Rfam assigns this 108-nucleotide RNA sequence from Treponema vincentii to the family "TD-1 RNA". Lineage of the source: Bacteria > Pseudomonadati > Spirochaetia > Treponemataceae > Treponema vincentii. Rfam classes the family as a cis-regulatory element. On this family, see Weinberg et al., Nucleic Acids Res 2007: "Identification of 22 candidate structured RNAs in bacteria using the CMfinder comparative genomics pipeline". The family has 28 seed sequences and 147 matches in Rfam 15.1. It scores 65 bits against the family's covariance model.
[Rfam]
RNA sequence: GUUAACCGUCAAGUUUUCUACCGAAAACUUACUUAUUGUAUGUACGCUAUCGCGUACCAAUGCAACAGUUUCCAAAGUUGAAACUUUGUUCAACUGUUGCAUUUUAUG
Numbered sequence: 001g002u003u004a005a006c007c008g009u010c011a012a013g014u015u016u017u018c019u020a021c022c023g024a025a026a027a028c029u030u031a032c033u034u035a036u037u038g039u040a041u042g043u044a045c046g047c048u049a050u051c052g053c054g055u056a057c058c059a060a061u062g063c064a065a066c067a068g069u070u071u072c073c074a075a076a077g078u079u080g081a082a083a084c085u086u087u088g089u090u091c092a093a094c095u096g097u098u099g100c101a102u103u104u105u106a107u108g
Stems, first nucleotide, its partner, number of pairs: 011030008042057006060102011073088006